The family of this 120-nucleotide sequence from Streptomyces rubellomurinus is "Streptomyces-metH RNA". Rfam classes the family as a small RNA.
RNA sequence: ACGCUCAGCAUACGGAAUGCGGCGGCGCGGGCCUGGACAAGCCGGAUACGCUGGCGACGUGCGCGCCCGAUCAAGCGGGCCGCAAAGCCGACAGCCGUCGCACCAGGGAGAAGCCCCAUG
Numbered sequence: 001a002c003g004c005u006c007a008g009c010a011u012a013c014g015g016a017a018u019g020c021g022g023c024g025g026c027g028c029g030g031g032c033c034u035g036g037a038c039a040a041g042c043c044g045g046a047u048a049c050g051c052u053g054g055c056g057a058c059g060u061g062c063g064c065g066c067c068c069g070a071u072c073a074a075g076c077g078g079g080c081c082g083c084a085a086a087g088c089c090g091a092c093a094g095c096c097g098u099c100g101c102a103c104c105a106g107g108g109a110g111a112a113g114c115c116c117c118a119u120g
Stems, first nucleotide, its partner, number of pairs: 060084004066079004087101002090099003
The base pairs follow the family's consensus structure, which is taken from published work.
Lineage of the source: Bacteria > Bacillati > Actinomycetota > Kitasatosporales > Streptomyces.